The record is a 62-nucleotide RNA sequence from Caballeronia telluris, which matches "Betaproteobacteria toxic small RNA" in Rfam.
It scores 64 bits against the family's covariance model.
Rfam's curators write: Overexpression in amino aid rich medium attenuates growth, suggesting role in repressing amino acid intake and metabolism.

RNA sequence: UGUCUCCUCCAUGUCUCAACCGAUAUGGAUUGUGCCCGCUCAAACUGAGCGGGCUUUUUUUU
Numbered sequence: 001u002g003u004c005u006c007c008u009c010c011a012u013g014u015c016u017c018a019a020c021c022g023a024u025a026u027g028g029a030u031u032g033u034g035c036c037c038g039c040u041c042a043a044a045c046u047g048a049g050c051g052g053g054c055u056u057u058u059u060u061u062u
Stems, first nucleotide, its partner, number of pairs: 008029008034054007